[Rfam]
RNA: Small nucleolar RNA SNORA61
Nucleotides: 133
Stems, first nucleotide, its partner, number of pairs: 003060005019047005025040004077121007095109001
Number, partner (000 for none) and nucleotide at each position: 001000a002000c003060c004059c005058u006057c007056c008000g009000g010000u011000u012000c013000c014000c015000u016000u017000u018000c019047c020046c021045a022044u023043c024000g025040g026039a027038u028037c029000u030000g031000c032000a033000a034000a035000g036000u037028g038027g039026u040025c041000u042000u043023g044022g045021u046020g047019g048000u049000c050000g051000u052000a053000a054000a055000a056007g057006g058005a059004g060003g061000a062000a063000a064000a065000g066000g067000a068000a069000c070000a071000c072000u073000g074000a075000c076000g077121c078120u079119g080118g081117c082116c083115u084000c085000c086000c087000a088000g089000u090000g091000c092000a093000u094000a095109u096000a097000g098000u099000c100000u101000g102000g103000u104000a105000u106000a107000c108000g109095g110000c111000u112000c113000g114000g115083g116082g117081g118080c119079u120078a121077g122000u123000u124000u125000c126000a127000a128000a129000c130000a131000a132000g133000g